[Rfam]
This 148-nucleotide RNA sequence from Trema orientale belongs to the Rfam family "Small nucleolar RNA snoR136".
Gene Ontology terms of the family: nucleolus and RNA processing.
By type it is an H/ACA-box small nucleolar RNA.
The source organism's lineage runs through Eukaryota, Magnoliopsida, Pentapetalae, fabids and Trema.
The match comes from Rfam's covariance-model search (83 bits).
The family's consensus secondary structure was predicted with mfold.
RNA sequence: AUGGCUUCAUUUUUUUUCAUUAAUCAGCAUACACUAAUUGUAUUUAAGGUUUGUGUAUGUCGUUAAAUGAAGCCAAACAAAAUCUGUUCCCCUCGCUAUCCAGUGCCUGCUUUUCUGUGUUGCAUUCGGACGUUGGGGAACUACAUCU
Numbered sequence: 001a002u003g004g005c006u007u008c009a010u011u012u013u014u015u016u017u018c019a020u021u022a023a024u025c026a027g028c029a030u031a032c033a034c035u036a037a038u039u040g041u042a043u044u045u046a047a048g049g050u051u052u053g054u055g056u057a058u059g060u061c062g063u064u065a066a067a068u069g070a071a072g073c074c075a076a077a078c079a080a081a082a083u084c085u086g087u088u089c090c091c092c093u094c095g096c097u098a099u100c101c102a103g104u105g106c107c108u109g110c111u112u113u114u115c116u117g118u119g120u121u122g123c124a125u126u127c128g129g130a131c132g133u134u135g136g137g138g139a140a141c142u143a144c145a146u147c148u
Stems, first nucleotide, its partner, number of pairs: 002075004008069005016062001018059002030057005037052001086141007094132002099130003103126001108119002